[Rfam]
RNA: glmS glucosamine-6-phosphate activated ribozyme aptamer
Organism: Mycoplasma sp. CAG:472
RNA sequence: AUUUUUGUAAUAGCGCAUGGCCUAUUUAGGUGACGAGGACUUACAUUGUCGAUUUAUCAGCGGAUGUGUAAGCGGAGAAGUUUUACUUCGUAAAAUACCUUAAAAAAAUAAAAUCAAAAUUAUAACAAAGAGGUAUUUAAUAAAACA
Numbered sequence: 001a002u003u004u005u006u007g008u009a010a011u012a013g014c015g016c017a018u019g020g021c022c023u024a025u026u027u028a029g030g031u032g033a034c035g036a037g038g039a040c041u042u043a044c045a046u047u048g049u050c051g052a053u054u055u056a057u058c059a060g061c062g063g064a065u066g067u068g069u070a071a072g073c074g075g076a077g078a079a080g081u082u083u084u085a086c087u088u089c090g091u092a093a094a095a096u097a098c099c100u101u102a103a104a105a106a107a108a109u110a111a112a113a114u115c116a117a118a119a120u121u122a123u124a125a126c127a128a129a130g131a132g133g134u135a136u137u138u139a140a141u142a143a144a145a146c147a
Stems, first nucleotide, its partner, number of pairs: 020031004040072005049060001051058002073090005094137007108123003113120002